This 34-nucleotide sequence belongs to the Rfam family "S4-Bacteroidia ribosomal protein leader". The family is grouped with related families in Rfam's "Ribosomal Protein S4 Leader clan". A reference for the family is Eckert and Weinberg (2020), "Discovery of 20 novel ribosomal leader candidates in bacteria and archaea", BMC Microbiol. The sequence is in the family's curated seed alignment.
[Rfam]
RNA sequence: GAUUGCAUUUAUUUCCUUUUUGUAAUCGCGGCUG
Numbered sequence: 001g002a003u004u005g006c007a008u009u010u011a012u013u014u015c016c017u018u019u020u021u022g023u024a025a026u027c028g029c030g031g032c033u034g
Stems, first nucleotide, its partner, number of pairs: 001027007